[Rfam]
RNA sequence: AUAUUAUUUUGGACCUCUUUCUGUAUAAUGCUGAUAAUAUGGUUCAGCAGUCUCUACCAAACAACCGUAAACUGUUUGGCUACAGUAAGGGGGGUAAACUGA
Numbered sequence: 001a002u003a004u005u006a007u008u009u010u011g012g013a014c015c016u017c018u019u020u021c022u023g024u025a026u027a028a029u030g031c032u033g034a035u036a037a038u039a040u041g042g043u044u045c046a047g048c049a050g051u052c053u054c055u056a057c058c059a060a061a062c063a064a065c066c067g068u069a070a071a072c073u074g075u076u077u078g079g080c081u082a083c084a085g086u087a088a089g090g091g092g093g094g095u096a097a098a099c100u101g102a
Stems, first nucleotide, its partner, number of pairs: 018088002021085005029049006058078006
Shown here is a 102-nucleotide RNA sequence from Defluviitoga tunisiensis, a member of the family "Purine riboswitch aptamer". The family's consensus secondary structure is taken from published work. Gene Ontology term of the family: purine nucleobase biosynthetic process. About the family: Riboswitches are metabolite binding domains within certain messenger RNAs that serve as precision sensors for their corresponding targets. It scores 78 bits against the family's covariance model.